[Rfam]
RNA sequence: CUCUUAUUCAGAGAGGUGGAGGGAAUAGGCCCUAUGAAACCCAGCAACCAGUGCAUAGAUAGAUAUGUGCCCGGUGCUAAUUCCUACAGCGUAAGCUGAAAGAUAAGAA
Numbered sequence: 001c002u003c004u005u006a007u008u009c010a011g012a013g014a015g016g017u018g019g020a021g022g023g024a025a026u027a028g029g030c031c032c033u034a035u036g037a038a039a040c041c042c043a044g045c046a047a048c049c050a051g052u053g054c055a056u057a058g059a060u061a062g063a064u065a066u067g068u069g070c071c072c073g074g075u076g077c078u079a080a081u082u083c084c085u086a087c088a089g090c091g092u093a094a095g096c097u098g099a100a101a102g103a104u105a106a107g108a109a
Stems, first nucleotide, its partner, number of pairs: 002108007013042001015041003021032003026086004043078004048074002051070006082101001087098004

Overview: The record is a 109-nucleotide RNA from Anaerovirgula multivorans, which matches "SAM riboswitch aptamer (S box leader)" in Rfam. Rfam links the family to the GO term regulation of gene expression.